[Rfam]
RNA sequence: CGACCCCAGUCGAGGCGGGACUACCCGCUGAGUUUAAGCAUAUCAAUAAGCGGAGGAAAAAGAAACUUACAAGGAUUCCCCUAGUAGCGGCGAGCGAGCAGGAAAUGCCCGGCUUGAGAAUCGGGCGCCCGCGGCGUUCGGGAUGUAGUGCUGAGAAGCGUCCUCGGCGGCGGACCAGGGCCCAAGUCCCCCUGGAAGGGGGCGCCGGAGAGGAGUGAGCCCCGUCGUGACUGGACCCUGCCGCACCACGAGGCGCUGUCUGCGAGUCGGGUUGUUUGGGAAUGCAGCCCCAAUCGGGCGGUAAAUUCCGUCCAAGGCUAAAUAUGGGCGAGAGGCCGAUAGCAAACAAGUACCGCGAGGAAAGAUGAAAAGGACUUUGAAAAGAGAGUCAAAGAGUGCUUGAAAUUGUCGGGAGGGAAG
Numbered sequence: 001c002g003a004c005c006c007c008a009g010u011c012g013a014g015g016c017g018g019g020a021c022u023a024c025c026c027g028c029u030g031a032g033u034u035u036a037a038g039c040a041u042a043u044c045a046a047u048a049a050g051c052g053g054a055g056g057a058a059a060a061a062g063a064a065a066c067u068u069a070c071a072a073g074g075a076u077u078c079c080c081c082u083a084g085u086a087g088c089g090g091c092g093a094g095c096g097a098g099c100a101g102g103a104a105a106u107g108c109c110c111g112g113c114u115u116g117a118g119a120a121u122c123g124g125g126c127g128c129c130c131g132c133g134g135c136g137u138u139c140g141g142g143a144u145g146u147a148g149u150g151c152u153g154a155g156a157a158g159c160g161u162c163c164u165c166g167g168c169g170g171c172g173g174a175c176c177a178g179g180g181c182c183c184a185a186g187u188c189c190c191c192c193u194g195g196a197a198g199g200g201g202g203c204g205c206c207g208g209a210g211a212g213g214a215g216u217g218a219g220c221c222c223c224g225u226c227g228u229g230a231c232u233g234g235a236c237c238c239u240g241c242c243g244c245a246c247c248a249c250g251a252g253g254c255g256c257u258g259u260c261u262g263c264g265a266g267u268c269g270g271g272u273u274g275u276u277u278g279g280g281a282a283u284g285c286a287g288c289c290c291c292a293a294u295c296g297g298g299c300g301g302u303a304a305a306u307u308c309c310g311u312c313c314a315a316g317g318c319u320a321a322a323u324a325u326g327g328g329c330g331a332g333a334g335g336c337c338g339a340u341a342g343c344a345a346a347c348a349a350g351u352a353c354c355g356c357g358a359g360g361a362a363a364g365a366u367g368a369a370a371a372g373g374a375c376u377u378u379g380a381a382a383a384g385a386g387a388g389u390c391a392a393a394g395a396g397u398g399c400u401u402g403a404a405a406u407u408g409u410c411g412g413g414a415g416g417g418a419a420g
Stems, first nucleotide, its partner, number of pairs: 024055001025053005035042002066073002077103003087095002107318003114148003118144001121141007155260002157257004162253004167244007175234003179231001181229001186203001188202002191200002206210001212222002269290007296313005353360002375386004
This 420-nucleotide part of an RNA from Salix koriyanagi belongs to the Rfam family "Eukaryotic large subunit ribosomal RNA". The base pairs follow the family's consensus structure, which is taken from published work. The source organism's lineage runs through Eukaryota, Viridiplantae, Tracheophyta, Euphyllophyta and Salix.